[Rfam]
U2 spliceosomal RNA: a 183-nucleotide RNA from Citrus x clementina.
RNA sequence: AUACCUUUCUCGGCCUUUUGGCUAAGAUCAAGUGUAUAUAGUAUCUGUUCUUAUCAGUUUAAUAUCUGGCUCACACGAUAUUAGAUUAACUUUUUAAGGCGGAGAGCUCACUACUGGAGCUUGCGACCGGGGCUCUCGAGCGGCGCCCUUGCCUUGCACUACUGCAACGUCGUCGCACACCCA
Numbered sequence: 001a002u003a004c005c006u007u008u009c010u011c012g013g014c015c016u017u018u019u020g021g022c023u024a025a026g027a028u029c030a031a032g033u034g035u036a037u038a039u040a041g042u043a044u045c046u047g048u049u050c051u052u053a054u055c056a057g058u059u060u061a062a063u064a065u066c067u068g069g070c071u072c073a074c075a076c077g078a079u080a081u082u083a084g085a086u087u088a089a090c091u092u093u094u095u096a097a098g099g100c101g102g103a104g105a106g107c108u109c110a111c112u113a114c115u116g117g118a119g120c121u122u123g124c125g126a127c128c129g130g131g132g133c134u135c136u137c138g139a140g141c142g143g144c145g146c147c148c149u150u151g152c153c154u155u156g157c158a159c160u161a162c163u164g165c166a167a168c169g170u171c172g173u174c175g176c177a178c179a180c181c182c183a
Stems, first nucleotide, its partner, number of pairs: 008027003012023004054069004102137008116127001119124001140176006147169001149167004
Rfam links the family to the GO terms mRNA branch site recognition, pre-mRNA branch point binding and U2 snRNP.